RNA sequence: CUCUGGAGAGAGCUGUAUGGAUUACAGCCACCAAAGAGGACAGCCGUAAUGGUAAAACUUUCAGGUGCAUGGACAGAG
Number, nucleotide and partner (000 for none) at each position: 001c078002u077003c076004u075005g074006g000007a000008g000009a000010g000011a000012g028013c027014u026015g025016u000017a000018u000019g000020g000021a000022u000023u000024a000025c015026a014027g013028c012029c000030a066031c065032c064033a000034a061035a000036g000037a060038g059039g058040a000041c000042a000043g053044c052045c000046g000047u000048a000049a000050u000051g000052g044053u043054a000055a000056a000057a000058c039059u038060u037061u034062c000063a000064g032065g031066u030067g000068c000069a000070u000071g000072g000073a000074c005075a004076g003077a002078g001
RNA: Glycine riboswitch aptamer